[Rfam]
RNA sequence: GUGUUUGAGUAAUCGCUGCAUGCUGGUGUGGUGAGUUUUCACUGAAUUGUAUGUAGAGGAAAGUCCAUGCUCGCACAGUCUGAGAUGACUGUAGUGUUCGUGCCUAGCGAAGACAUAAGCUAGGGUAGUCUGGUUUUUUACUGGGCUAACGGCAGGGAAAGCACCUACGUUCUGCUGCGUCGGCUAAGCUGCGCAAGAAUAUGGUGCGACUACCUUGAAAGUGCCACAGUGACGAAGUCCGGCCAGAAAUGGACGGAGUGGAACGGGGUAAACCCCACGAGCGAGAAACCCAAAAUUUGGUAGGGGCAUCCCCAGGAAGGAAUUUAACGGAAUGGGGAACAGGCAAGCUUGACUUUGCUUGUAGACAGAUGAUUACUGCUUUUGUACGAGGGUUGACAUCCGCUUGCAGUACAGAAGUACAGAACAUGGCUUACAAAA
Numbered sequence: 001g002u003g004u005u006u007g008a009g010u011a012a013u014c015g016c017u018g019c020a021u022g023c024u025g026g027u028g029u030g031g032u033g034a035g036u037u038u039u040c041a042c043u044g045a046a047u048u049g050u051a052u053g054u055a056g057a058g059g060a061a062a063g064u065c066c067a068u069g070c071u072c073g074c075a076c077a078g079u080c081u082g083a084g085a086u087g088a089c090u091g092u093a094g095u096g097u098u099c100g101u102g103c104c105u106a107g108c109g110a111a112g113a114c115a116u117a118a119g120c121u122a123g124g125g126u127a128g129u130c131u132g133g134u135u136u137u138u139u140a141c142u143g144g145g146c147u148a149a150c151g152g153c154a155g156g157g158a159a160a161g162c163a164c165c166u167a168c169g170u171u172c173u174g175c176u177g178c179g180u181c182g183g184c185u186a187a188g189c190u191g192c193g194c195a196a197g198a199a200u201a202u203g204g205u206g207c208g209a210c211u212a213c214c215u216u217g218a219a220a221g222u223g224c225c226a227c228a229g230u231g232a233c234g235a236a237g238u239c240c241g242g243c244c245a246g247a248a249a250u251g252g253a254c255g256g257a258g259u260g261g262a263a264c265g266g267g268g269u270a271a272a273c274c275c276c277a278c279g280a281g282c283g284a285g286a287a288a289c290c291c292a293a294a295a296u297u298u299g300g301u302a303g304g305g306g307c308a309u310c311c312c313c314a315g316g317a318a319g320g321a322a323u324u325u326a327a328c329g330g331a332a333u334g335g336g337g338a339a340c341a342g343g344c345a346a347g348c349u350u351g352a353c354u355u356u357g358c359u360u361g362u363a364g365a366c367a368g369a370u371g372a373u374u375a376c377u378g379c380u381u382u383u384g385u386a387c388g389a390g391g392g393u394u395g396a397c398a399u400c401c402g403c404u405u406g407c408a409g410u411a412c413a414g415a416a417g418u419a420c421a422g423a424a425c426a427u428g429g430c431u432u433a434c435a436a437a438a
Base pairs, nucleotide, nucleotide: 004438005437006436007434008377009376010375011374012373013372014371016056017055018054019053020052021051022050023049061432062431063430065429066428067427068426069425070285071284072283073282074281075092076091077090078089079088080087098280099279100278101277102276103124104123105122106121107120108119125150126148127147128146129145130144131143132142133141134140151275152274154215155214156213162206163205164204165203169200170199171198172197173196221273222272223269224268225267238257239256240255241254243252244251245250289305290304291303309338310337311336312335313334314333339362340361341360342359343358344357345356346355347354379417380416381415382414383413384412385411386410387409

Bacterial RNase P class B: a 438-nucleotide RNA sequence from Evansella caseinilytica.
For this family Rfam cites "The Ribonuclease P Database" (Brown, Nucleic Acids Res, 1999).
Its family is annotated with ribonuclease P activity, tRNA processing and dimeric ribonuclease P complex in the Gene Ontology.
Ribonuclease P (RNase P) is a ubiquitous endoribonuclease, found in archaea, bacteria and eukarya as well as chloroplasts and mitochondria. Its best characterised activity is the generation of mature 5'-ends of tRNAs by cleaving the 5'-leader elements of precursor-tRNAs.